Shown here is a 122-nucleotide RNA sequence from Gossypium lobatum, a member of the family "MIR7504 microRNA precursor family". Taxonomically the source falls in Gossypium (Eukaryota, Viridiplantae, Streptophytina, Malvoideae). Rfam links the family to the GO terms RISC complex and miRNA-mediated post-transcriptional gene silencing. Pairs were carried over by alignment from the consensus structure, which was predicted with RNAalifold.
RNA sequence: AUCAAGAAUGACAAAUUAGAUUUUUUCUCCUGAUUUUCACUUUUUUCUCCUGAAAAAAUUCAAAUCCAACUAAAAAUGCUAAAAAUUAAGAGAAAAAAAAUCUGAUUUAUCAUUCUUUUGUU
Numbered sequence: 001a002u003c004a005a006g007a008a009u010g011a012c013a014a015a016u017u018a019g020a021u022u023u024u025u026u027c028u029c030c031u032g033a034u035u036u037u038c039a040c041u042u043u044u045u046u047c048u049c050c051u052g053a054a055a056a057a058a059u060u061c062a063a064a065u066c067c068a069a070c071u072a073a074a075a076a077u078g079c080u081a082a083a084a085a086u087u088a089a090g091a092g093a094a095a096a097a098a099a100a101u102c103u104g105a106u107u108u109a110u111c112a113u114u115c116u117u118u119u120g121u122u
Base pairs, nucleotide, nucleotide: 004117005116006115007114008113009112010111011110013108014107015106016105017104018103019102020101021099022098023096024095025094027092028091029090031088032087033086034085035084036083037082039080042076043075044074045073